[Rfam]
RNA sequence: CUGUAUGUUGGGAGCUCUUAAUCUGCUCUUCAUUCUGUUGGGAGUGAGACUGUGUAUCUGCAGCAUACUAUAUAAAAUAAAGGAGUUUUCCGGGCUGCUGGCCGUACAGUGACAAUUAAGUGAUAGUCUGUUUCUUUUUCAUGA
Dot-bracket structure: ..((((((.............(.((((((...........)))))).)..............)))))).............((((........(...((((..((......))..))).)...).........)))).......
RNA: Small nucleolar RNA U109
Organism: Sapajus apella